[Rfam]
Nucleotides: 512
Stems, first nucleotide, its partner, number of pairs: 007389003011385002014382002020327001022325002027321002030318001031316002036311005042305001046303001049301004058229001060227005065111001068108001075103001077102003082097003086093001117222001119220001122217001127212001129210002131206001134203002140197001143196001150191001154188002157185004161178001165174001235295003240290002244286002250282005256277003260271001262269001329342003353377001355375003360372004391431007399423003403418001405416001407415001437476002440473001443470002446467001447465006477511002480505003484502003488498001
Number, partner (000 for none) and nucleotide at each position: 001000g002000u003000g004000g005000c006000c007389g008388u009387g010000c011385a012384g013000u014382c015381c016000c017000a018000c019000c020327g021000g022325g023324c024000g025000u026000c027321c028320g029000c030318g031316u032315c033000c034000a035000a036311c037310a038309g039308g040307g041000c042305g043000u044000u045000u046303u047000c048000a049301c050300c051299g052298a053000a054000c055000c056000g057000g058229u059000c060227g061226c062225c063224g064223u065111c066000g067000g068108c069000g070000a071000g072000u073000a074000c075103g076000g077102c078101g079100a080000c081000g082097g083096c084095g085000a086093c087000c088000u089000c090000g091000u092000c093086g094000c095084c096083g097082u098000a099000c100079u101078u102077g103075c104000c105000g106000a107000c108068g109000g110000a111065g112000g113000u114000c115000c116000g117222g118000c119220u120000g121000a122217u123000g124000c125000g126000g127212c128000c129210g130209u131206g132000g133000g134203c135202g136000a137000u138000c139000a140197g141000a142000u143196g144000g145000a146000u147000c148000u149000g150191c151000u152000c153000g154188g155187c156000g157185g158184g159183c160182g161178u162000a163000c164000c165174g166000c167000g168000c169000u170000c171000g172000a173000c174165c175000a176000g177000c178161a179000c180000u181000u182160c183159g184158c185157c186000g187155g188154c189000g190000u191150g192000g193000a194000a195000g196143u197140c198000g199000c200000g201000c202135u203134g204000a205000a206131c207000g208000c209130a210129c211000c212127g213000g214000c215000c216000g217122g218000c219000g220119a221000u222117c223064g224063c225062g226061g227060u228000c229058a230000g231000c232000a233000c234000c235295u236294c237293c238000a239000c240290g241289u242000c243000c244286u245285c246000g247000a248000a249000g250282c251281c252280g253279c254278g255000c256277a257276g258275c259000a260271g261000g262269g263000c264000c265000a266000g267000u268000u269262c270000g271260c272000c273000g274000a275258g276257c277256u278254c279253g280252c281251g282250g283000g284000g285245g286244a287000u288000c289241a290240c291000c292000c293237g294236g295235a296000c297000g298052u299051c300050g301049g302000c303046a304000c305042c306000a307040u308039c309038c310037u311036g312000a313000a314000c315032g316031a317000a318030c319000u320028c321027g322000a323000u324023g325022c326000g327020c328000c329342c330341g331340u332000c333000g334000c335000c336000g337000a338000c339000c340331g341330u342329g343000u344000a345000g346000c347000u348000c349000a350000g351000c352000c353377g354000a355375c356374g357373g358000u359000u360372c361371a362370c363369c364000c365000g366000g367000u368000a369363g370362g371361u372360g373357c374356c375355g376000c377353c378000c379000u380000u381015g382014g383000c384012c385011u386000c387009c388008a389007c390000c391431c392430a393429g394428g395427g396426g397425a398000g399423c400422g401421u402000c403418c404000g405416c406000a407415g408000c409000a410000g411000c412000c413000a414000g415407c416405g417000a418403g419000a420000g421401g422400u423399g424000a425397u426396c427395c428394c429393c430392u431391g432000c433000a434000u435000c436000u437476g438475c439000g440473g441000g442000g443470c444469g445000g446467a447465c448464u449463u450462c451461g452460u453000c454000g455000u456000g457000g458000u459000g460452g461451c462450g463449a464448g465447g466000u467446u468000a469444c470443g471000g472000g473440c474000a475438g476437c477511c478510g479000c480505c481504g482503u483000a484502c485501u486500c487000a488498g489000a490000c491000u492000g493000g494000a495000c496000u497000g498488c499000c500486g501485a502484g503482a504481c505480g506000g507000c508000u509000c510478c511477g512000g

Rfam assigns this 512-nucleotide RNA sequence from Streptomyces bingchenggensis to the family "Saccharopolyspora sRNA 350".
By type it is an antisense RNA.
A reference for the family is Liu et al. (2013), "Prediction and characterization of small non-coding RNAs related to secondary metabolites in Saccharopolyspora erythraea", PLoS One.
The organism belongs to Streptomyces bingchenggensis, within Bacteria.
The family has 2 seed sequences and 1,170 matches in Rfam 15.1.